[Rfam]
RNA: SAM (S-adenosyl methionine) riboswitch aptamer
RNA sequence: GGUCAUGAGUGUCAGCGUCAAGCCCUGGCUUGCUGAACGGCAACCCUCCCGCGCGGCGGGGUGCUCCAGGUGACGACCGGGCGGAGCCGAAGACGGUUCCGCAAGCGCGAGCC
Numbered sequence: 001g002g003u004c005a006u007g008a009g010u011g012u013c014a015g016c017g018u019c020a021a022g023c024c025c026u027g028g029c030u031u032g033c034u035g036a037a038c039g040g041c042a043a044c045c046c047u048c049c050c051g052c053g054c055g056g057c058g059g060g061g062u063g064c065u066c067c068a069g070g071u072g073a074c075g076a077c078c079g080g081g082c083g084g085a086g087c088c089g090a091a092g093a094c095g096g097u098u099c100c101g102c103a104a105g106c107g108c109g110a111g112c113c
Base pairs, nucleotide, nucleotide: 001078002077003076004075009038012036013035014034015033016032021030022029039065040064041063044061045060046059048056049055081102082101083100084099085098086097087096088095089094